[Rfam]
Rfam assigns this 98-nucleotide RNA sequence from Streptococcus pantholopis to the family "azaaromatic riboswitch aptamer (yjdF RNA)". Pairs were carried over by alignment from the consensus structure, which is taken from published work.
RNA sequence: AAUAGACAGCAUAAAAACACAUUGCAGUUGGUAGUCUGCAAGCGUUAAAAAACGUCAGUAACCUUCCCUCCAGGUCGUCCCUUGCUAAUUUCUUGAGG
Numbered sequence: 001a002a003u004a005g006a007c008a009g010c011a012u013a014a015a016a017a018c019a020c021a022u023u024g025c026a027g028u029u030g031g032u033a034g035u036c037u038g039c040a041a042g043c044g045u046u047a048a049a050a051a052a053c054g055u056c057a058g059u060a061a062c063c064u065u066c067c068c069u070c071c072a073g074g075u076c077g078u079c080c081c082u083u084g085c086u087a088a089u090u091u092c093u094u095g096a097g098g
Stems, first nucleotide, its partner, number of pairs: 004090002008086004022041006042055005066074002